[Rfam]
RNA sequence: UGUUCGAGUCGCGACUGGCGUCAGGUGGGUCACCAUCGGGGAGCGGCCACGGAUCACGAGCCGCACGCCUGGGCUCGCCGA
Numbered sequence: 001u002g003u004u005c006g007a008g009u010c011g012c013g014a015c016u017g018g019c020g021u022c023a024g025g026u027g028g029g030u031c032a033c034c035a036u037c038g039g040g041g042a043g044c045g046g047c048c049a050c051g052g053a054u055c056a057c058g059a060g061c062c063g064c065a066c067g068c069c070u071g072g073g074c075u076c077g078c079c080g081a
Stems, first nucleotide, its partner, number of pairs: 003053004008047005015040002017069005025036004058076005